[Rfam]
RNA: mir-147 microRNA precursor family
RNA sequence: AGUCAUUCUAGUAGAAGCAUUUCACCAUGAAUUUUUUUUUUAAUUUAGUCAUGGUGAAAUGCUUCUACCACAAUGACU
Numbered sequence: 001a002g003u004c005a006u007u008c009u010a011g012u013a014g015a016a017g018c019a020u021u022u023c024a025c026c027a028u029g030a031a032u033u034u035u036u037u038u039u040u041u042a043a044u045u046u047a048g049u050c051a052u053g054g055u056g057a058a059a060u061g062c063u064u065c066u067a068c069c070a071c072a073a074u075g076a077c078u
Base pairs, nucleotide, nucleotide: 001078002077004075005074006073007072009070011068012067013066014065015064016063018061019060020059021058022057023056024055025054026053027052028051029050033048